[Rfam]
RNA sequence: AGGGCGGUAUCCGGGCGCGGAACCGCACCGUAAAAAAGCGUUUUUUUGACAACCUGGUAUUUUUUGGAACCGCUUGGAGCCGGAAGGACCGAGACGGGAGG
Numbered sequence: 001a002g003g004g005c006g007g008u009a010u011c012c013g014g015g016c017g018c019g020g021a022a023c024c025g026c027a028c029c030g031u032a033a034a035a036a037a038g039c040g041u042u043u044u045u046u047u048g049a050c051a052a053c054c055u056g057g058u059a060u061u062u063u064u065u066g067g068a069a070c071c072g073c074u075u076g077g078a079g080c081c082g083g084a085a086g087g088a089c090c091g092a093g094a095c096g097g098g099a100g101g
Base pairs, nucleotide, nucleotide: 002029003028004026005025006024007023008022010021011020070097071096072095073093074092075091076090077089080087081086
RNA: pan motif
Organism: Pelotomaculum thermopropionicum